[Rfam]
RNA sequence: GGGGUGUGCUCAGAGCAGGGUGCUGAAUAACGGCUCCUUUGUUUACAACGCACUGAACAGGAACUUGGGUUUAGGUCUCACAGAUGGCAGGAUACUUUGGCUUUCCUGUGACAUCAUGCUCUAUACAG
Numbered sequence: 001g002g003g004g005u006g007u008g009c010u011c012a013g014a015g016c017a018g019g020g021u022g023c024u025g026a027a028u029a030a031c032g033g034c035u036c037c038u039u040u041g042u043u044u045a046c047a048a049c050g051c052a053c054u055g056a057a058c059a060g061g062a063a064c065u066u067g068g069g070u071u072u073a074g075g076u077c078u079c080a081c082a083g084a085u086g087g088c089a090g091g092a093u094a095c096u097u098u099g100g101c102u103u104u105c106c107u108g109u110g111a112c113a114u115c116a117u118g119c120u121c122u123a124u125a126c127a128g
Base pairs, nucleotide, nucleotide: 003054004053005052006051007050008049013044014043015042016041017040018039019038020037022034023033024032068121069120071118075114076113081110082109084103086101088099089098090097091096
Dot-bracket structure: ..((((((....((((((((.(((.......)))..))))))))....)))))).............((.(...((....((.(.(.((((....)))).).).....))..))...).)).......